[Rfam]
RNA sequence: GUUUCAUCCAUGAUGGUGUUUCCUCUAAACCUGCAAGGAGGAACACCUGAUGUCCAGGAAAAU
Dot-bracket structure: ((((..........((((((((.(.....(......)).))))))))............))))

The record is a 63-nucleotide sequence from Rousettus aegyptiacus, which matches "Selenocysteine insertion sequence 1" in Rfam. Its family is annotated with selenocysteine incorporation in the Gene Ontology. It scores 38 bits against the family's covariance model. Rfam classes the family as a cis-regulatory element.